[Rfam]
RNA sequence: ACCUGGCAUACAAUGUAGAUUUCUGUGUUUGUUGGGCAACAGCUACAUUGUCUGCUGGGUU
Number, nucleotide and partner (000 for none) at each position: 001a000002c000003c058004u057005g056006g055007c054008a053009u000010a051011c050012a049013a048014u047015g046016u045017a044018g043019a000020u000021u000022u000023c042024u041025g040026u039027g000028u000029u000030u000031g000032u000033u000034g000035g000036g000037c000038a000039a026040c025041a024042g023043c018044u017045a016046c015047a014048u013049u012050g011051u010052c000053u008054g007055c006056u005057g004058g003059g000060u000061u000
RNA: mir-221 microRNA precursor family